[Rfam]
RNA sequence: UUGAAACUCAGGUGAGAGUCCUUAAAAAGGCGCCGAAGGAGCAAGGGAAAAUCCCGAAACUCUCAGGUACAAAGAAUCUGAGUGGACG
Numbered sequence: 001u002u003g004a005a006a007c008u009c010a011g012g013u014g015a016g017a018g019u020c021c022u023u024a025a026a027a028a029g030g031c032g033c034c035g036a037a038g039g040a041g042c043a044a045g046g047g048a049a050a051a052u053c054c055c056g057a058a059a060c061u062c063u064c065a066g067g068u069a070c071a072a073a074g075a076a077u078c079u080g081a082g083u084g085g086a087c088g
Stems, first nucleotide, its partner, number of pairs: 006083008020030003032068003035064002039062003045055002
RNA: Glycine riboswitch aptamer
Organism: Halanaerobium sp. DL-01